[Rfam]
Nucleotides: 102
Base pairs, nucleotide, nucleotide: 019087020086021085022084023083024082025081030048031047032046033045034044035043058078059077060076061075062074063073064072
Number, partner (000 for none) and nucleotide at each position: 001000g002000a003000u004000a005000g006000g007000a008000a009000a010000u011000u012000u013000a014000g015000c016000a017000a018000a019087c020086c021085u022084c023083a024082u025081a026000u027000a028000a029000g030048u031047u032046u033045g034044g035043g036000a037000a038000u039000a040000u041000g042000g043035c044034c045033c046032a047031a048030a049000a050000g051000u052000u053000u054000c055000u056000a057000c058078c059077u060076a061075g062074u063073a064072a065000c066000c067000u068000u069000a070000a071000a072064u073063u074062a075061c076060u077059g078058g079000a080000c081025u082024a083023u084022g085021a086020g087019g088000g089000g090000a091000a092000g093000u094000u095000a096000a097000u098000c099000a100000c101000a102000c